[Rfam]
RNA sequence: CAAUCGAAGGUCUGUGGUUGAAAGUCCAUGCCAGUCGCAGGCAAAAGGACCCACGUAAGAUAGCAAAAAAAUGAACUAUUGAUCAUGGUGCGGCUUAGAGGUAAGUCCUGCCGGCUCUUAAGUCGAGAGGGGAAGUAGUGAAAGUAACCCUUGAGCAAAACCUCCAGCAGGCGAGUGUGGGGUCAAAGACCAGGUCAGCUUCUGAUG
Numbered sequence: 001c002a003a004u005c006g007a008a009g010g011u012c013u014g015u016g017g018u019u020g021a022a023a024g025u026c027c028a029u030g031c032c033a034g035u036c037g038c039a040g041g042c043a044a045a046a047g048g049a050c051c052c053a054c055g056u057a058a059g060a061u062a063g064c065a066a067a068a069a070a071a072u073g074a075a076c077u078a079u080u081g082a083u084c085a086u087g088g089u090g091c092g093g094c095u096u097a098g099a100g101g102u103a104a105g106u107c108c109u110g111c112c113g114g115c116u117c118u119u120a121a122g123u124c125g126a127g128a129g130g131g132g133a134a135g136u137a138g139u140g141a142a143a144g145u146a147a148c149c150c151u152u153g154a155g156c157a158a159a160a161c162c163u164c165c166a167g168c169a170g171g172c173g174a175g176u177g178u179g180g181g182g183u184c185a186a187a188g189a190c191c192a193g194g195u196c197a198g199c200u201u202c203u204g205a206u207g
Stems, first nucleotide, its partner, number of pairs: 001207001003206003006202004012198003015192005028178003031041001033095007050088002055083001058080002086185001107171005112125005129164004138156002142152003
Notes: The family of this 207-nucleotide sequence from Alkaliphilus metalliredigens is "raiA RNA". Pairs were carried over by alignment from the consensus structure, which is taken from published work. Rfam's curators put it in the seed alignment. The family's RNA type in Rfam is riboswitch.